RNA sequence: CUUGAUCCAAUUUGUAAGUCGCUCUGGAUAAGAGCGUCUGCUAAAUUAUGUAAA
Number, nucleotide and partner (000 for none) at each position: 001c000002u000003u000004g000005a000006u000007c000008c000009a000010a000011u000012u000013u043014g041015u040016a039017a000018g000019u000020c036021g035022c034023u033024c032025u031026g000027g000028a000029u000030a000031a025032g024033a023034g022035c021036g020037u000038c000039u016040g015041c014042u000043a013044a000045a000046u000047u000048a000049u000050g000051u000052a000053a000054a000
Rfam assigns this 54-nucleotide sequence from Coregonus sp. 'balchen' to the family "UnaL2 LINE 3' element". NCBI's taxonomy places the organism under Eukaryota, Eumetazoa, Craniata, Gnathostomata, Coregonus. It scores 60 bits against the family's covariance model. The base pairs follow the family's consensus structure, which is taken from published work.